[Rfam]
RNA sequence: ACCAAGGCUUUCUAGGGUUCCGCGGAGCAUUCCGGACUGGUCCGAGAGAAAGCGCACAGAUUCUUUCUGUGACACGGAGGGAUAAAAGCCCGGGAGAU
Numbered sequence: 001a002c003c004a005a006g007g008c009u010u011u012c013u014a015g016g017g018u019u020c021c022g023c024g025g026a027g028c029a030u031u032c033c034g035g036a037c038u039g040g041u042c043c044g045a046g047a048g049a050a051a052g053c054g055c056a057c058a059g060a061u062u063c064u065u066u067c068u069g070u071g072a073c074a075c076g077g078a079g080g081g082a083u084a085a086a087a088g089c090c091c092g093g094g095a096g097a098u
Stems, first nucleotide, its partner, number of pairs: 007053006015043002020040002022037001023034004055071006073093001075096001079091003
Shown here is a 98-nucleotide RNA from Bacillus aerolatus, a member of the family "Guanidine-I riboswitch aptamer". Rfam describes the family as follows. This family represents a conserved RNA structure found upstream of the ykkC and yxkD genes in Bacillus subtilis and related genes in other bacteria. The function of this family is unclear although it has been suggested that it may function to switch on efflux pumps and detoxification systems in response to harmful environmental molecules. Rfam links the family to the GO term regulation of gene expression. The match comes from Rfam's covariance-model search (86 bits).